[Rfam]
RNA sequence: GCCAGGGUGAGCUUCGCUGGCGCGGAGUGCGGCCUUCAAAGCCGUAGCGGCUUAGCGGCCGAGUCGUUCGAUUCGACCUCACUGGC
Dot-bracket structure: (((((.(.(..((((((....))))))((((((.......)))))).(((((....))))).((((.......))))).).)))))